[Rfam]
RNA sequence: GGAGCCAUAAGGAGUGAUCCCCAUCCAGCCUUAGGAAAAGAAACCUGUCACGGGAGUCUGGGACUUUGGCGACCAUCCUAAUGACUUA
Numbered sequence: 001g002g003a004g005c006c007a008u009a010a011g012g013a014g015u016g017a018u019c020c021c022c023a024u025c026c027a028g029c030c031u032u033a034g035g036a037a038a039a040g041a042a043a044c045c046u047g048u049c050a051c052g053g054g055a056g057u058c059u060g061g062g063a064c065u066u067u068g069g070c071g072a073c074c075a076u077c078c079u080a081a082u083g084a085c086u087u088a
Stems, first nucleotide, its partner, number of pairs: 002087003006083003010079004016073001018071001020069002023066001029062002039059003044054004

The family of this 88-nucleotide sequence from Equus caballus is "mir-9014 microRNA precursor family". Taxonomically the source falls in Equus (Eukaryota, Opisthokonta, Chordata, Euteleostomi). It scores 76 bits against the family's covariance model.